[Rfam]
RNA sequence: CAGGUCCGGACCCUGGACGCCCGCCACGUGCGACGGCCCCGGCGGCUACCCUGACCGCGUGCGCCUUCGGCACCGGAGGCGCAAAGCCGACAGCCGUCGCACUCAGGGAGCAUUCUCAUG
Numbered sequence: 001c002a003g004g005u006c007c008g009g010a011c012c013c014u015g016g017a018c019g020c021c022c023g024c025c026a027c028g029u030g031c032g033a034c035g036g037c038c039c040c041g042g043c044g045g046c047u048a049c050c051c052u053g054a055c056c057g058c059g060u061g062c063g064c065c066u067u068c069g070g071c072a073c074c075g076g077a078g079g080c081g082c083a084a085a086g087c088c089g090a091c092a093g094c095c096g097u098c099g100c101a102c103u104c105a106g107g108g109a110g111c112a113u114u115c116u117c118a119u120g
Base pairs, nucleotide, nucleotide: 060083061082062081063080065079066078067077068076086100087099089098090097091096
RNA: Streptomyces-metH RNA